[Rfam]
RNA sequence: CCGCAUCCACUAAUAGACCUUGGACAGUUUGCUGGGGGUUUUUUUGUUUGUUUGUUUGUUUGUUUUGUUUGCUCUGGGGAUGCAAAGGAGGGAAAUCCCUGCACUUCCUGUCUGUCUUUUUGGCAGCCCGGAUUGAAUUGAGGACUACAUCU
Numbered sequence: 001c002c003g004c005a006u007c008c009a010c011u012a013a014u015a016g017a018c019c020u021u022g023g024a025c026a027g028u029u030u031g032c033u034g035g036g037g038g039u040u041u042u043u044u045u046g047u048u049u050g051u052u053u054g055u056u057u058g059u060u061u062g063u064u065u066u067g068u069u070u071g072c073u074c075u076g077g078g079g080a081u082g083c084a085a086a087g088g089a090g091g092g093a094a095a096u097c098c099c100u101g102c103a104c105u106u107c108c109u110g111u112c113u114g115u116c117u118u119u120u121u122g123g124c125a126g127c128c129c130g131g132a133u134u135g136a137a138u139u140g141a142g143g144a145c146u147a148c149a150u151c152u
Stems, first nucleotide, its partner, number of pairs: 003083006014071005022061006096144003100140002104135001108131003112126005

Rfam assigns this 152-nucleotide RNA from Cercocebus atys to the family "Small nucleolar RNA SNORA31". Taxonomically the source falls in Cercocebus (Eukaryota, Euteleostomi, Eutheria, Simiiformes). It scores 74 bits against the family's covariance model. A reference for the family is Huttenhofer et al. (2001), "RNomics: an experimental approach that identifies 201 candidates for novel, small, non-messenger RNAs in mouse", EMBO J. Gene Ontology terms of the family: RNA processing and nucleolus. Rfam describes the family as follows. ACA31 (SNORA31) belongs to the H/ACA class of snoRNAs which are thought to guide the sites of modification of uridines to pseudouridines.